RNA sequence: UGGAGGACUGAGAAGGUAAGACAGUUGAACUUUAUGCUGUAUCUUACUGGUUAUAGCCUCCAAAAUUAUAACAGUGCAAUAGCAACUCCUGUUCCCUUCUGACAUGAGGGAAAGCAGAACUGCAUUUG
Numbered sequence: 001u002g003g004a005g006g007a008c009u010g011a012g013a014a015g016g017u018a019a020g021a022c023a024g025u026u027g028a029a030c031u032u033u034a035u036g037c038u039g040u041a042u043c044u045u046a047c048u049g050g051u052u053a054u055a056g057c058c059u060c061c062a063a064a065a066u067u068a069u070a071a072c073a074g075u076g077c078a079a080u081a082g083c084a085a086c087u088c089c090u091g092u093u094c095c096c097u098u099c100u101g102a103c104a105u106g107a108g109g110g111a112a113a114g115c116a117g118a119a120c121u122g123c124a125u126u127u128g
Base pairs, nucleotide, nucleotide: 002061003060004059005058006057015048016047017046018045019042021040022039023038024037025036083128090122091121093111094110095109096108098107099106